Annotation
Rfam assigns this 174-nucleotide RNA sequence from Thomasclavelia spiroformis to the family "Lysine riboswitch aptamer". The match comes from Rfam's covariance-model search (89 bits). The source organism's lineage runs through Bacteria, Bacillota, Erysipelotrichales, Coprobacillaceae and Thomasclavelia spiroformis. The base pairs follow the family's consensus structure, which is taken from published work.
[Rfam]
RNA sequence: AUAGAAGAUAGAGGCGCGAAUAGUUAUGAAAUUUUUAUUGUAAGAUGCAAACUAGAUAAAAGUAGAGGAGCUUUCGCCGAAGAGAUAAAUGAUUGCAUGCAUUUAUACUCUGGUCUUAUAGAGAAUAUCUAUAAGACUGUCAUUAUCAUUUGAUAAUGAUGAGCUAUCAUUGUU
Numbered sequence: 001a002u003a004g005a006a007g008a009u010a011g012a013g014g015c016g017c018g019a020a021u022a023g024u025u026a027u028g029a030a031a032u033u034u035u036u037a038u039u040g041u042a043a044g045a046u047g048c049a050a051a052c053u054a055g056a057u058a059a060a061a062g063u064a065g066a067g068g069a070g071c072u073u074u075c076g077c078c079g080a081a082g083a084g085a086u087a088a089a090u091g092a093u094u095g096c097a098u099g100c101a102u103u104u105a106u107a108c109u110c111u112g113g114u115c116u117u118a119u120a121g122a123g124a125a126u127a128u129c130u131a132u133a134a135g136a137c138u139g140u141c142a143u144u145a146u147c148a149u150u151u152g153a154u155a156a157u158g159a160u161g162a163g164c165u166a167u168c169a170u171u172g173u174u
Stems, first nucleotide, its partner, number of pairs: 007168005016077005023071003032062008081111004085106007112138011140159007